Background
raiA RNA: a 204-nucleotide RNA from Clostridium fallax. The family's RNA type in Rfam is riboswitch.

RNA sequence: AAGAGCUAGGUUUGUGGUUGAAAGUCGAUGCCAGUCGCAGGCAAAACGAUCCACGUAAGUUGAACAAAGUUUCAAUGAGCAUGGUGCGGCUUAGAAGUAAGUCCUGCCAGGAAAACUGAGAGGAUUAGUAGUGAGAAGUUAAAUCUGGGUAGCGAAAGUUCCAGCAGGCGAGUGUGGGGUCAAAGACCAGGUCAACUAGCAUGA
Numbered sequence: 001a002a003g004a005g006c007u008a009g010g011u012u013u014g015u016g017g018u019u020g021a022a023a024g025u026c027g028a029u030g031c032c033a034g035u036c037g038c039a040g041g042c043a044a045a046a047c048g049a050u051c052c053a054c055g056u057a058a059g060u061u062g063a064a065c066a067a068a069g070u071u072u073c074a075a076u077g078a079g080c081a082u083g084g085u086g087c088g089g090c091u092u093a094g095a096a097g098u099a100a101g102u103c104c105u106g107c108c109a110g111g112a113a114a115a116c117u118g119a120g121a122g123g124a125u126u127a128g129u130a131g132u133g134a135g136a137a138g139u140u141a142a143a144u145c146u147g148g149g150u151a152g153c154g155a156a157a158g159u160u161c162c163a164g165c166a167g168g169c170g171a172g173u174g175u176g177g178g179g180u181c182a183a184a185g186a187c188c189a190g191g192u193c194a195a196c197u198a199g200c201a202u203g204a
Stems, first nucleotide, its partner, number of pairs: 003202001005200005012195003015189005028175003031041001033091007050084002058076001060074001062072003082182001103168005108118003122161004131153002137146002